Small nucleolar RNA SNORA22: a 135-nucleotide sequence from Neotoma lepida.
By type it is an H/ACA-box small nucleolar RNA.
ACA22 is a member of the H/ACA class of snoRNA that guide the sites of modification of uridines to pseudouridines.
It scores 88 bits against the family's covariance model.
Lineage of the source: Eukaryota > Metazoa > Chordata > Euteleostomi > Neotoma.
The family has 31 seed sequences and 883 matches in Rfam 15.1.

Nucleotides: 135
Base pairs, nucleotide, nucleotide: 004054005053006052007051008050009046010045012041013040014039015038018035020033021032022031023030024029057073058072060070061069062068079121080120081119082118083113085111086110087108088107089106090105091104092103093102
Number, partner (000 for none) and nucleotide at each position: 001000a002000a003000u004054c005053a006052c007051a008050g009046c010045a011000c012041c013040c014039a015038a016000g017000g018035g019000u020033g021032c022031u023030a024029u025000g026000u027000c028000u029024g030023u031022g032021g033020u034000u035018c036000c037000g038015u039014u040013g041012g042000c043000c044000u045010u046009g047000a048000u049000g050008c051007u052006g053005u054004g055000c056000u057073a058072g059000a060070g061069u062068a063000a064000a065000g066000u067000c068062u069061a070060u071000c072058c073057u074000u075000u076000c077000c078000c079121u080120c081119u082118g083113u084000a085111u086110u087108g088107a089106a090105a091104g092103g093102a094000g095000g096000a097000c098000u099000g100000u101000g102093u103092c104091c105090u106089u107088u108087u109000a110086a111085g112000c113083g114000u115000a116000u117000u118082c119081a120080g121079a122000a123000a124000a125000u126000c127000a128000g129000c130000a131000c132000a133000u134000c135000a